RNA sequence: CCUGAUCCGAACCUGAUGUCUUGCAGAUCAUCCUCGGGAAGGUGCGCUCCUUCACGUCACCCGGCCAAGGGC
Numbered sequence: 001c002c003u004g005a006u007c008c009g010a011a012c013c014u015g016a017u018g019u020c021u022u023g024c025a026g027a028u029c030a031u032c033c034u035c036g037g038g039a040a041g042g043u044g045c046g047c048u049c050c051u052u053c054a055c056g057u058c059a060c061c062c063g064g065c066c067a068a069g070g071g072c
Base pairs, nucleotide, nucleotide: 003030004029005028006027007026008023009022010021038053039052040051041050042049
Dot-bracket structure: ..((((((((..........)))..))))).......(((((......)))))...................
The family of this 72-nucleotide RNA sequence from Aeromicrobium sp. is "Actinobacteria sRNA Ms_AS-8".
The family's RNA type in Rfam is small RNA.
For this family Rfam cites "Identification of small RNAs in Mycobacterium smegmatis using heterologous Hfq" (Li et al., RNA, 2013).